azaaromatic riboswitch aptamer (yjdF RNA): a 114-nucleotide sequence from Paenibacillus sp. J2TS4. A search with the family's covariance model found it, with a score of 79 bits. The source organism's lineage runs through Bacteria, Bacillota, Caryophanales, Paenibacillaceae and Paenibacillus.
[Rfam]
RNA sequence: UCGUGAGAGUGUAGAAACACAGCUCCGGUUGGUAGUCCGGACGCACGGCGGUUCUUCCCGUGCCCGUGUCAGUAACCUUCCCCCCUCGGGAUGUCCUUCACUCUCUGCAUUAAG
Numbered sequence: 001u002c003g004u005g006a007g008a009g010u011g012u013a014g015a016a017a018c019a020c021a022g023c024u025c026c027g028g029u030u031g032g033u034a035g036u037c038c039g040g041a042c043g044c045a046c047g048g049c050g051g052u053u054c055u056u057c058c059c060g061u062g063c064c065c066g067u068g069u070c071a072g073u074a075a076c077c078u079u080c081c082c083c084c085c086u087c088g089g090g091a092u093g094u095c096c097u098u099c100a101c102u103c104u105c106u107g108c109a110u111u112a113a114g
Base pairs, nucleotide, nucleotide: 005105006104007103008102009101010100011099022042025040026039027038028037043069044068045067046066047065048064079091080090081089082088